Eukaryotic large subunit ribosomal RNA: a 270-nucleotide part of an RNA from Babesia ovis. Its family is annotated with structural constituent of ribosome and ribosome in the Gene Ontology. The base pairs follow the family's consensus structure, which is taken from published work. Taxonomically the source falls in Babesia (Eukaryota, Sar, Apicomplexa, Aconoidasida).
RNA sequence: GAGUCUACCACCCGCGCGAGUGCCAGGGCGUCAACCCCGGGCGCGCAAUGAAAGUGACUGCAUGCAUGACCCCAGCCCAUGCGGCCGGCGGGCCUCAGUUCCGUCGCGUCAGAGCGCGGUUGUUAGGACCCGAAAGAUGGUGAACUAUGCCUGGGUAGGAUGAAGUCAGGCGAAAGCCUGAUGGAGGUCCGCAGCGAUACUGACGUGCAAAUCGUUCGUCGAACCUGGGUAUAGGGGCGAAAGACUAAUCGAACCAUCUAGUAGCUGGUU
Numbered sequence: 001g002a003g004u005c006u007a008c009c010a011c012c013c014g015c016g017c018g019a020g021u022g023c024c025a026g027g028g029c030g031u032c033a034a035c036c037c038c039g040g041g042c043g044c045g046c047a048a049u050g051a052a053a054g055u056g057a058c059u060g061c062a063u064g065c066a067u068g069a070c071c072c073c074a075g076c077c078c079a080u081g082c083g084g085c086c087g088g089c090g091g092g093c094c095u096c097a098g099u100u101c102c103g104u105c106g107c108g109u110c111a112g113a114g115c116g117c118g119g120u121u122g123u124u125a126g127g128a129c130c131c132g133a134a135a136g137a138u139g140g141u142g143a144a145c146u147a148u149g150c151c152u153g154g155g156u157a158g159g160a161u162g163a164a165g166u167c168a169g170g171c172g173a174a175a176g177c178c179u180g181a182u183g184g185a186g187g188u189c190c191g192c193a194g195c196g197a198u199a200c201u202g203a204c205g206u207g208c209a210a211a212u213c214g215u216u217c218g219u220c221g222a223a224c225c226u227g228g229g230u231a232u233a234g235g236g237g238c239g240a241a242a243g244a245c246u247a248a249u250c251g252a253a254c255c256a257u258c259u260a261g262u263a264g265c266u267g268g269u270u
Base pairs, nucleotide, nucleotide: 005126006125007124009122010121012119013118014117015116016115017114020044021043022042026038027037028036048055049054060082061081062080063079064078067074068073084109085108086106087105088104089103090102091101092099093098129268130267132265136258137257138256139255140254141253145234146233147232148231149230150229151228152227153226154225155224156222158190159189160188161187165182166181167180168179169178170177171176194219195218196217197216199215200214202213203212236246237245